[Rfam]
RNA sequence: UUAUGAACUUUGUAUCGCGCACAUCACUUAGAUGGCUCUAGAAAGUCACAUAGCAC
Numbered sequence: 001u002u003a004u005g006a007a008c009u010u011u012g013u014a015u016c017g018c019g020c021a022c023a024u025c026a027c028u029u030a031g032a033u034g035g036c037u038c039u040a041g042a043a044a045g046u047c048a049c050a051u052a053g054c055a056c
Stems, first nucleotide, its partner, number of pairs: 019036002022034004
The record is a 56-nucleotide RNA sequence from Protea cynaroides, which matches "Plastid-ndhJ 3UTR RNA" in Rfam.
The family's RNA type in Rfam is cis-regulatory element.
NCBI's taxonomy places the organism under Eukaryota, Streptophyta, Euphyllophyta, Proteaceae, Protea.
For this family Rfam cites "Retrograde signaling in plants: A critical review focusing on the GUN pathway and beyond" (Richter et al., Plant Commun, 2023).
Rfam's curators write: Plastid ndhJ is a non-coding RNA (ncRNA) present in plastids. It was identified as a short stem-loop motif in the 3 prime untranslate region (3UTR) of ndhJ gene.
The match comes from Rfam's covariance-model search (71 bits).